[Rfam]
RNA sequence: GGUCGGGACAGCGACUGGCGGCACGAGGAUGGGUCUCAACCAUCGGGGAGCCGGCGUCGCGGGCGCCGACCGCCUGGGUGCCCGCG
Numbered sequence: 001g002g003u004c005g006g007g008a009c010a011g012c013g014a015c016u017g018g019c020g021g022c023a024c025g026a027g028g029a030u031g032g033g034u035c036u037c038a039a040c041c042a043u044c045g046g047g048g049a050g051c052c053g054g055c056g057u058c059g060c061g062g063g064c065g066c067c068g069a070c071c072g073c074c075u076g077g078g079u080g081c082c083c084g085c086g
Stems, first nucleotide, its partner, number of pairs: 003059001005057001007055001009053001011051002015047002017074005029043004063081005
Dot-bracket structure: ..[.[.[.[.[[..[[(((((.......((((.......))))..]]..]].].].].]...[[[[[..)))))..]]]]].....
The family of this 86-nucleotide sequence from Phytohabitans houttuyneae is "ZMP/ZTP riboswitch aptamer (pfl RNA motif)". Pairs were carried over by alignment from the consensus structure, which is taken from published work. Taxonomically the source falls in Phytohabitans (Bacteria, Actinomycetes, Micromonosporales, Micromonosporaceae).